[Rfam]
About this RNA: This 98-nucleotide sequence from Cetobacterium somerae belongs to the Rfam family "Purine riboswitch aptamer".
RNA sequence: AUAUAUAAUAAUAACAAAUCCUAUAUAUGUUUCAAAUAUGGUGAAACGUCUCUACAAGUUACCGUAAAUAACUUACUAUGGGCUUAUUUUAAAGUUGA
Numbered sequence: 001a002u003a004u005a006u007a008a009u010a011a012u013a014a015c016a017a018a019u020c021c022u023a024u025a026u027a028u029g030u031u032u033c034a035a036a037u038a039u040g041g042u043g044a045a046a047c048g049u050c051u052c053u054a055c056a057a058g059u060u061a062c063c064g065u066a067a068a069u070a071a072c073u074u075a076c077u078a079u080g081g082g083c084u085u086a087u088u089u090u091a092a093a094g095u096u097g098a
Base pairs, nucleotide, nucleotide: 018084020082021081022080023079024078025077029047030046031045032044033043034042056074057073058072059071060070061069
Rfam 15.1 lists 4,097 matches to the family in 1,411 species. The base pairs follow the family's consensus structure, which is taken from published work. NCBI's taxonomy places the organism under Bacteria, Fusobacteriota, Fusobacteriaceae, Cetobacterium, Cetobacterium somerae.